Description: Rfam assigns this 130-nucleotide sequence from Marmota monax to the family "Small nucleolar RNA SNORA42/SNORA80 family". The family's RNA type in Rfam is H/ACA-box small nucleolar RNA. A search with the family's covariance model found it, with a score of 74 bits. Rfam links the family to the GO terms nucleolus and RNA processing. Rfam's curators write: The members of this family belong to the H/ACA class of snoRNAs that guide the sites of modification of uridines to pseudouridines. Human ACA42 (SNORA42) was cloned from HeLa cells by immunoprecipitation with anti-GAR1 antibody. Its is predicted to guide the pseudouridylation of residues U109 and U572 of 18S rRNA. ACA42 shares the same host gene with ACA26, ACA46, ACA50. This family also includes mammalian snoRNA ACA67 (SNORA80) which was identified by computational screening and its expression in mouse experimentally verified by Northern blot and primer extension analysis. ACA67 is proposed to guide the pseudouridylation of the same 18S rRNA residues as ACA42.
RNA sequence: UCCUGGAUUUGGAUUUGUGGCAGGCCCCUUCCCUUGGACCUCUGAUAGUGCCCAGCCCAGGGCAGACGAGCCCAGAACCACUGCUGACCUCUACCCUUAGGCUGCUGGCACUGAAGCAGGUUGCACAAUG
Numbered sequence: 001u002c003c004u005g006g007a008u009u010u011g012g013a014u015u016u017g018u019g020g021c022a023g024g025c026c027c028c029u030u031c032c033c034u035u036g037g038a039c040c041u042c043u044g045a046u047a048g049u050g051c052c053c054a055g056c057c058c059a060g061g062g063c064a065g066a067c068g069a070g071c072c073c074a075g076a077a078c079c080a081c082u083g084c085u086g087a088c089c090u091c092u093a094c095c096c097u098u099a100g101g102c103u104g105c106u107g108g109c110a111c112u113g114a115a116g117c118a119g120g121u122u123g124c125a126c127a128a129u130g
Stems, first nucleotide, its partner, number of pairs: 003055002005052002008050001015048004020043001022041003025037002069122004079113002084108001085104002088101003